[Rfam]
RNA: RNase MRP
Nucleotides: 324
Base pairs, nucleotide, nucleotide: 002324003323004322005321006320007319008318009317010316011315015232016231017230018229019228022098023097024096025095026094027093036077037076038075039074040073103310104309105308107307108306109305110304119131120130121129122128133145134144135143137142148205149204150203151202152201153200154199155198156197159194160193161192166191167190168189169188176184177183235294236293237292238291239290240289
Number, partner (000 for none) and nucleotide at each position: 001000u002324g003323a004322c005321a006320c007319a008318g009317u010316g011315a012000a013000g014000a015232c016231u017230u018229g019228c020000u021000a022098c023097g024096a025095a026094g027093c028000u029000a030000c031000a032000c033000a034000c035000g036077g037076a038075g039074a040073a041000a042000a043000g044000g045000a046000u047000u048000g049000u050000u051000g052000a053000a054000u055000u056000c057000g058000u059000u060000u061000u062000u063000g064000a065000a066000c067000u068000u069000c070000c071000a072000c073040u074039u075038c076037u077036c078000a079000a080000c081000a082000a083000c084000g085000c086000u087000u088000u089000g090000u091000u092000g093027g094026c095025u096024u097023u098022g099000g100000g101000g102000a103310a104309a105308g106000u107307c108306c109305c110304c111000g112000g113000a114000c115000c116000u117000g118000a119131g120130g121129c122128a123000g124000a125000a126000a127000g128122u129121g130120u131119c132000a133145g134144u135143c136000g137142u138000a139000a140000a141000g142137a143135g144134g145133c146000a147000a148205g149204u150203u151202c152201u153200u154199c155198u156197c157000g158000a159194g160193u161192c162000u163000a164000a165000a166191c167190g168189g169188c170000g171000a172000a173000g174000a175000a176184g177183c178000u179000a180000c181000a182000c183177g184176c185000a186000g187000a188169g189168c190167u191166g192161g193160a194159c195000g196000a197156g198155g199154g200153a201152a202151g203150g204149a205148c206000a207000u208000u209000u210000c211000u212000g213000u214000c215000g216000a217000a218000g219000c220000a221000a222000a223000g224000u225000u226000a227000u228019g229018c230017a231016a232015g233000g234000a235294g236293g237292c238291a239290u240289c241000u242000u243000c244000a245000u246000g247000u248000g249000g250000c251000c252000a253000u254000g255000c256000c257000a258000g259000g260000a261000g262000c263000c264000a265000u266000c267000a268000c269000c270000c271000u272000g273000g274000u275000g276000a277000g278000g279000c280000u281000g282000u283000g284000u285000g286000g287000c288000u289240g290239a291238u292237g293236u294235c295000c296000a297000a298000c299000u300000c301000a302000a303000c304110g305109g306108g307107g308105c309104u310103u311000a312000u313000u314000c315011u316010c317009a318008c319007u320006g321005u322004g323003u324002c